[Rfam]
RNA sequence: GUUCUUACAAUAUCCGGUUAGCGUUAACCGACACUUUACCGGACAUUGUAAAAACGG
Numbered sequence: 001g002u003u004c005u006u007a008c009a010a011u012a013u014c015c016g017g018u019u020a021g022c023g024u025u026a027a028c029c030g031a032c033a034c035u036u037u038a039c040c041g042g043a044c045a046u047u048g049u050a051a052a053a054a055c056g057g
Base pairs, nucleotide, nucleotide: 001055002054003053005051006050007049008048009047010046011045013043014042015041016040017039018038020036021035023032024031025030
RNA: mir-3015 microRNA precursor family